Source information: A member of the RNA family "pemK RNA" from Streptococcus mutans, 123 nucleotides long. Rfam's curators put it in the seed alignment.

[Rfam]
RNA sequence: AUAAUGAUACUCCCGUACAGUCACAGUCCGAGCGUUGAAGCACAGAGAACCUGUGUGAGCCGUCGCAGGCAAUGAAUACGGCUACAUGAGAACCAGAACCAUGUAGGGGUGAGAUUCCCGUGA
Numbered sequence: 001a002u003a004a005u006g007a008u009a010c011u012c013c014c015g016u017a018c019a020g021u022c023a024c025a026g027u028c029c030g031a032g033c034g035u036u037g038a039a040g041c042a043c044a045g046a047g048a049a050c051c052u053g054u055g056u057g058a059g060c061c062g063u064c065g066c067a068g069g070c071a072a073u074g075a076a077u078a079c080g081g082c083u084a085c086a087u088g089a090g091a092a093c094c095a096g097a098a099c100c101a102u103g104u105a106g107g108g109g110u111g112a113g114a115u116u117c118c119c120g121u122g123a
Stems, first nucleotide, its partner, number of pairs: 012120001013081004082106003086102003107119003